[Rfam]
RNA sequence: UCCGCUGGUCAGGUGAUCGCUGGCGAAUUUUUUUCGCGAGAGGAAAGUCCGGGCUUCGCAGGGCAGGGUGGUCGGUAACGCCGACCGGUCGAGAGAUCAGGGACAGUGCCACAGAAAGCAAACCGCCGAACGGAGCGAUACGUCGCUUGCGUGGCAAGGGUGAAACGGUGAGGUAAGAGCUCACCAGCGCCGUUGGUGACUUCGGCGGCUUGGUAAACCCCACCCGAAGCAAGGCCAAACAGAAAGCAGUGGCGGCCCGCCGCGUUAUGACUUUCGGGUAGGCUGCUUGAGCGUGUCAGCAAUGGCUCGCCUAGAUAAAUGAUCAUCCACGACAAAACCCGGCUUACCGACCAGCACUUUUU
Numbered sequence: 001u002c003c004g005c006u007g008g009u010c011a012g013g014u015g016a017u018c019g020c021u022g023g024c025g026a027a028u029u030u031u032u033u034u035c036g037c038g039a040g041a042g043g044a045a046a047g048u049c050c051g052g053g054c055u056u057c058g059c060a061g062g063g064c065a066g067g068g069u070g071g072u073c074g075g076u077a078a079c080g081c082c083g084a085c086c087g088g089u090c091g092a093g094a095g096a097u098c099a100g101g102g103a104c105a106g107u108g109c110c111a112c113a114g115a116a117a118g119c120a121a122a123c124c125g126c127c128g129a130a131c132g133g134a135g136c137g138a139u140a141c142g143u144c145g146c147u148u149g150c151g152u153g154g155c156a157a158g159g160g161u162g163a164a165a166c167g168g169u170g171a172g173g174u175a176a177g178a179g180c181u182c183a184c185c186a187g188c189g190c191c192g193u194u195g196g197u198g199a200c201u202u203c204g205g206c207g208g209c210u211u212g213g214u215a216a217a218c219c220c221c222a223c224c225c226g227a228a229g230c231a232a233g234g235c236c237a238a239a240c241a242g243a244a245a246g247c248a249g250u251g252g253c254g255g256c257c258c259g260c261c262g263c264g265u266u267a268u269g270a271c272u273u274u275c276g277g278g279u280a281g282g283c284u285g286c287u288u289g290a291g292c293g294u295g296u297c298a299g300c301a302a303u304g305g306c307u308c309g310c311c312u313a314g315a316u317a318a319a320u321g322a323u324c325a326u327c328c329a330c331g332a333c334a335a336a337a338c339c340c341g342g343c344u345u346a347c348c349g350a351c352c353a354g355c356a357c358u359u360u361u362u
Stems, first nucleotide, its partner, number of pairs: 004355007012327007020040002023037005045345003049342005054229004061258004066225005071085005086100001087098004101220002106218002108214003123159002125155003131149003167185006187209001188207005195200001233284004242275005249263005291310003295306004
Record summary
A member of the RNA family "Bacterial RNase P class A" from Mariniblastus fucicola, 362 nucleotides long. The family's RNA type in Rfam is ribozyme. The match comes from Rfam's covariance-model search (292 bits).